[Rfam]
Background:
Shown here is a 117-nucleotide RNA sequence from Genlisea aurea, a member of the family "U5 spliceosomal RNA". Its family is annotated with U5 snRNP and spliceosomal tri-snRNP complex assembly in the Gene Ontology. A search with the family's covariance model found it, with a score of 84 bits. Pairs were carried over by alignment from the consensus structure, which is taken from published work. Rfam classes the family as a spliceosomal small nuclear RNA.
RNA sequence: AGCUGCGCAAUGAGCACAUAGCGAACUAUUCUUUCGCCUUUUACUAAAGAAUACCGUGUGAUCGUUGCAAAUAAGCAGCUUAUCAUUAUUUUUGGAGGGAAUUUCCUGAAAAGGAUU
Numbered sequence: 001a002g003c004u005g006c007g008c009a010a011u012g013a014g015c016a017c018a019u020a021g022c023g024a025a026c027u028a029u030u031c032u033u034u035c036g037c038c039u040u041u042u043a044c045u046a047a048a049g050a051a052u053a054c055c056g057u058g059u060g061a062u063c064g065u066u067g068c069a070a071a072u073a074a075g076c077a078g079c080u081u082a083u084c085a086u087u088a089u090u091u092u093u094g095g096a097g098g099g100a101a102u103u104u105c106c107u108g109a110a111a112a113g114g115a116u117u
Base pairs, nucleotide, nucleotide: 003078004077005076006075008067009066010065011064012063013062015060016059017058018057027053028052029051030050031049032048033047034046099117100116102114103113